[Rfam]
RNA sequence: UUGAACCUCCAUCUACAAAUGGAUAAUACUUCGUUCUUAGUGUAUACGAGUCAUUGAAGGAACAAUACCAAAUGUCUUAGACAUUUUUUAUUGUUCUGUU
Numbered sequence: 001u002u003g004a005a006c007c008u009c010c011a012u013c014u015a016c017a018a019a020u021g022g023a024u025a026a027u028a029c030u031u032c033g034u035u036c037u038u039a040g041u042g043u044a045u046a047c048g049a050g051u052c053a054u055u056g057a058a059g060g061a062a063c064a065a066u067a068c069c070a071a072a073u074g075u076c077u078u079a080g081a082c083a084u085u086u087u088u089u090a091u092u093g094u095u096c097u098g099u100u
Stems, first nucleotide, its partner, number of pairs: 008023005059097009070086003074082003
Plastid-psbA-1 3UTR RNA: a 100-nucleotide RNA sequence from Amborella trichopoda. A search with the family's covariance model found it, with a score of 82 bits. Rfam describes the family as follows. Plastid psbA-1 is a non-coding RNA (ncRNA) present in plastids. It was identified in inverted repeat sequences in the 3 prime untranslate region (3UTR) of photosystem II quinone-binding protein (psbA). Lineage of the source: Eukaryota > Euphyllophyta > Spermatophyta > Amborellales > Amborella. Clan: Plastid-psbA 3UTR RNA clan. Rfam classes the family as a cis-regulatory element.